[Rfam]
RNA sequence: UCCCUGCUUUUCCUCCCUGAGCAGGUGCCUUACCGUGUUGACAGCGUUAAGGCUUUGCGGCCCCAGCACAGCUGGGGCUCUUUUUUU
Number, nucleotide and partner (000 for none) at each position: 001u000002c000003c025004c024005u023006g022007c021008u020009u000010u000011u000012c000013c000014u000015c000016c000017c000018u000019g000020a008021g007022c006023a005024g004025g003026u000027g053028c052029c051030u050031u049032a048033c000034c000035g000036u000037g000038u000039u000040g000041a000042c000043a000044g000045c000046g000047u000048u032049a031050a030051g029052g028053c027054u000055u000056u000057g000058c000059g079060g078061c077062c076063c075064c074065a073066g072067c000068a000069c000070a000071g000072c066073u065074g064075g063076g062077g061078c060079u059080c000081u000082u000083u000084u000085u000086u000087u000
Burkholderia RNA 7 (anti-hemB): an 87-nucleotide RNA sequence from Leptothrix cholodnii. A search with the family's covariance model found it, with a score of 61 bits. From the family's description: This RNA motif was identified by computational search in b-proteobacteria Burkholderia. Co-purified with Hfq, expression confirmed by Northern blot. A reference for the family is Weinberg et al. (2007), "Identification of 22 candidate structured RNAs in bacteria using the CMfinder comparative genomics pipeline", Nucleic Acids Res. The base pairs follow the family's consensus structure, which is taken from published work.